[Rfam]
RNA: Potassium channel RNA editing signal
RNA sequence: AUUAGAUAUGGGGACAUGGUUCCCAAGACUAUCGCAGGGAAAAUCUUUGGUUCCAUUUGCUCACUGAGUGGUGUGCUGGUCAUUGCACUGCCUGUCCCUGUAAUUGUGUCAAAC
Numbered sequence: 001a002u003u004a005g006a007u008a009u010g011g012g013g014a015c016a017u018g019g020u021u022c023c024c025a026a027g028a029c030u031a032u033c034g035c036a037g038g039g040a041a042a043a044u045c046u047u048u049g050g051u052u053c054c055a056u057u058u059g060c061u062c063a064c065u066g067a068g069u070g071g072u073g074u075g076c077u078g079g080u081c082a083u084u085g086c087a088c089u090g091c092c093u094g095u096c097c098c099u100g101u102a103a104u105u106g107u108g109u110c111a112a113a114c
Base pairs, nucleotide, nucleotide: 002113005110007108008107009106010105011104014101015100016099018097019096021094037077038076040074050062